[Rfam]
RNA sequence: AAGUAGCUUAUUCUUUUAACGUUUAAGACAAUCGAUCUGCGGUUCAAUAAACUAUAUAAUUCAGCAAUACAAAUCAAUCAUUAUUUCGGCUGAAGAGGACCUUCAUUGGUCCUAGAACGGCCUAAGGUAGAGGGAUUUUAGUCGGUAGGUCCGAGGACUUGAUCCUCGGGAAUCCGACACUACCCAGUCGUACGGACGGCUGGGUGUCUUUUGAAGAUUUCCCCUCAUCCACGAAA
Numbered sequence: 001a002a003g004u005a006g007c008u009u010a011u012u013c014u015u016u017u018a019a020c021g022u023u024u025a026a027g028a029c030a031a032u033c034g035a036u037c038u039g040c041g042g043u044u045c046a047a048u049a050a051a052c053u054a055u056a057u058a059a060u061u062c063a064g065c066a067a068u069a070c071a072a073a074u075c076a077a078u079c080a081u082u083a084u085u086u087c088g089g090c091u092g093a094a095g096a097g098g099a100c101c102u103u104c105a106u107u108g109g110u111c112c113u114a115g116a117a118c119g120g121c122c123u124a125a126g127g128u129a130g131a132g133g134g135a136u137u138u139u140a141g142u143c144g145g146u147a148g149g150u151c152c153g154a155g156g157a158c159u160u161g162a163u164c165c166u167c168g169g170g171a172a173u174c175c176g177a178c179a180c181u182a183c184c185c186a187g188u189c190g191u192a193c194g195g196a197c198g199g200c201u202g203g204g205u206g207u208c209u210u211u212u213g214a215a216g217a218u219u220u221c222c223c224c225u226c227a228u229c230c231a232c233g234a235a236a
Stems, first nucleotide, its partner, number of pairs: 041101005106235002109232002126230002130226001132223003141178005150170008180206001182205005